Rfam assigns this 77-nucleotide RNA from Nocardioides bruguierae to the family "ZMP/ZTP riboswitch aptamer (pfl RNA motif)". Pairs were carried over by alignment from the consensus structure, which is taken from published work. The match comes from Rfam's covariance-model search (47 bits). Its family is annotated with one-carbon metabolic process and regulation of purine nucleotide biosynthetic process in the Gene Ontology.

[Rfam]
RNA sequence: UGACCGCACCACGACUGGCGCAGGUGGGCCACCACCAGGGAGUGACGUCGGGAGCAUCGAACGCCUGGGUGCUCCUC
Numbered sequence: 001u002g003a004c005c006g007c008a009c010c011a012c013g014a015c016u017g018g019c020g021c022a023g024g025u026g027g028g029c030c031a032c033c034a035c036c037a038g039g040g041a042g043u044g045a046c047g048u049c050g051g052g053a054g055c056a057u058c059g060a061a062c063g064c065c066u067g068g069g070u071g072c073u074c075c076u077c
Stems, first nucleotide, its partner, number of pairs: 004050001006048002010044003015039002017065004024035004054072005